Shown here is a 98-nucleotide sequence from Streptomyces sp. F001, a member of the family "Bacterial small signal recognition particle RNA". Rfam describes the family as follows. The signal recognition particle (SRP) is a universally conserved ribonucleoprotein involved in the co-translational targeting of proteins to membranes. On this family, see Rosenblad et al., RNA Biol 2009: "Kinship in the SRP RNA family". By type it is a non-coding RNA gene.

RNA sequence: CGAAGCCCCUCACGCGGCGCUAUCUGACUGAACUCCCCCAGGGCCGGAAGGCAGCAAGGGUAGGUUGGCUCUGGCGGGUGCGUGGGGGCGCUUGCGUU
Number, nucleotide and partner (000 for none) at each position: 001c000002g000003a093004a092005g091006c090007c000008c000009c086010u085011c084012a083013c082014g081015c078016g000017g000018c076019g075020c074021u073022a072023u000024c068025u067026g066027a065028c064029u063030g000031a000032a000033c000034u000035c060036c059037c058038c000039c000040a000041g000042g000043g052044c051045c050046g000047g000048a000049a000050g045051g044052c043053a000054g000055c000056a000057a000058g037059g036060g035061u000062a000063g029064g028065u027066u026067g025068g024069c000070u000071c000072u022073g021074g020075c019076g018077g000078g015079u000080g000081c014082g013083u012084g011085g010086g009087g000088g000089c000090g006091c005092u004093u003094g000095c000096g000097u000098u000